[Rfam]
RNA sequence: GGUGAUUCAAACCAGUGUCUCGGACAGCGGUUCGAUUCCGCUCAGCUCCAUCUAACUUCAAAUUGCAUGGGGCUGCAAUGGUUUCGACGGGGCAAAAGGCGGAUGACUGAAGCCUGCUCGGUUAGAGCAAAUCCGUAACUGCGAACAACAUCGUUCGUUUCUCCCGUCAAACAGCCCCUGUUGCUGCUUGA
Number, nucleotide and partner (000 for none) at each position: 001g108002g107003u106004g000005a104006u000007u000008c000009a000010a000011a000012c000013c000014a000015g000016u094017g093018u092019c000020u090021c089022g088023g000024a000025c000026a042027g041028c040029g039030g038031u000032u000033c000034g000035a000036u000037u000038c030039c029040g028041c027042u026043c075044a074045g073046c072047u071048c070049c069050a000051u000052c000053u000054a000055a000056c000057u000058u000059c000060a000061a000062a000063u000064u000065g000066c000067a000068u000069g049070g048071g047072g046073c045074u044075g043076c000077a000078a000079u000080g000081g000082u000083u000084u000085c000086g000087a000088c022089g021090g020091g000092g018093c017094a016095a000096a000097a000098g000099g000100c000101g000102g000103a000104u005105g000106a003107c002108u001109g000110a000111a000112g000113c000114c000115u000116g000117c000118u000119c000120g000121g000122u000123u000124a000125g000126a000127g000128c000129a000130a000131a000132u000133c000134c000135g000136u000137a000138a000139c000140u000141g000142c000143g000144a000145a000146c000147a000148a000149c000150a000151u000152c000153g000154u000155u000156c000157g000158u000159u000160u000161c000162u000163c000164c000165c000166g000167u000168c000169a000170a000171a000172c000173a000174g000175c000176c000177c000178c000179u000180g000181u000182u000183g000184c000185u000186g000187c000188u000189u000190g000191a000
The record is a 191-nucleotide RNA from Prochlorococcus sp. AG-363-M17, which matches "permuted transfer-messenger RNA" in Rfam.
Rfam's curators put it in the seed alignment.
Rfam classes the family as a non-coding RNA gene.
The family's consensus secondary structure is taken from published work.
Rfam describes the family as follows. Bacterial tmRNA, also known as 10Sa RNA or SsrA, is named for its dual tRNA and mRNA-like properties.